[Rfam]
RNA sequence: CACGACAAAGGCAAACCAACUGAAAAGUUGGGACGCAAAGCUAAGGGCCCUUCAAGAAAAUAAGGGUAGCCGGCUAUCGAAA
Numbered sequence: 001c002a003c004g005a006c007a008a009a010g011g012c013a014a015a016c017c018a019a020c021u022g023a024a025a026a027g028u029u030g031g032g033a034c035g036c037a038a039a040g041c042u043a044a045g046g047g048c049c050c051u052u053c054a055a056g057a058a059a060a061u062a063a064g065g066g067u068a069g070c071c072g073g074c075u076a077u078c079g080a081a082a
Base pairs, nucleotide, nucleotide: 003079004078011036012035016031017030018029019028020027021026034069039075040074041073042072045071046070047067048066049065050064051063052062